[Rfam]
RNA sequence: UUUGAUCGAUCCCAACCACAGCGGGUGCUCCGGCCCACGCGCGGCACCGUAGGUGGCGAUCAGGGCGCCGGCCUC
Dot-bracket structure: .............(.((.....)).)....(.(....(....(.(.(((....))).).)....)...).)....

The family of this 75-nucleotide sequence from Mycobacterium pseudokansasii is "ASpks TB sRNA". The match comes from Rfam's covariance-model search (54 bits). The family's consensus secondary structure is taken from published work. Rfam 15.1 lists 9,052 matches to the family in 683 species.